[Rfam]
RNA sequence: UUGGUUUAAAUUAUUAUGAUCUACACAUUGAAAAUAGAACUCACACAAAGUGGUGGAACAUACAUUGAUUUCAUCCAA
Number, nucleotide and partner (000 for none) at each position: 001u078002u077003g076004g075005u000006u073007u000008a071009a070010a069011u068012u067013a066014u000015u064016a000017u062018g061019a000020u000021c056022u055023a054024c052025a051026c050027a000028u048029u047030g046031a000032a000033a000034a000035u000036a000037g000038a000039a000040c000041u000042c000043a000044c000045a000046c030047a029048a028049a000050g026051u025052g024053g000054u023055g022056g021057a000058a000059c000060a000061u018062a017063c000064a015065u000066u013067g012068a011069u010070u009071u008072c000073a006074u000075c004076c003077a002078a001
This 78-nucleotide RNA from Medicago truncatula belongs to the Rfam family "MIR5269 microRNA precursor family". Gene Ontology terms of the family: RISC complex and miRNA-mediated post-transcriptional gene silencing. Taxonomically the source falls in Medicago (Eukaryota, Magnoliopsida, Gunneridae, Papilionoideae). The family's consensus secondary structure was predicted with RNAalifold.